[Rfam]
RNA: L17-Actino-Proteobacteria ribosomal protein leader
RNA sequence: GGCCCUCGGAAGCGAGGGUCGAUGUGCACCCCCCGGUACCUGACACGGCCGGGGUC
Dot-bracket structure: ((((((((....)))))))).......(..(((((((..........)))))))).